Overview
A member of the RNA family "Small nucleolar RNA SNORD121A" from Odocoileus virginianus, 84 nucleotides long. Gene Ontology terms of the family: nucleolus and RNA processing. By type it is a C/D-box small nucleolar RNA. The match comes from Rfam's covariance-model search (62 bits). Rfam 15.1 lists 881 matches to the family in 444 species.

RNA sequence: CUGCAGAAGGCAGUGAUGCUUUACUUCCAAGCACAUAUCUGAGUUGUUUGUGUGGAUGGCACUAAAACUGAGUCUUUUCUGCAA
Numbered sequence: 001c002u003g004c005a006g007a008a009g010g011c012a013g014u015g016a017u018g019c020u021u022u023a024c025u026u027c028c029a030a031g032c033a034c035a036u037a038u039c040u041g042a043g044u045u046g047u048u049u050g051u052g053u054g055g056a057u058g059g060c061a062c063u064a065a066a067a068c069u070g071a072g073u074c075u076u077u078u079c080u081g082c083a084a
Stems, first nucleotide, its partner, number of pairs: 002083005008075004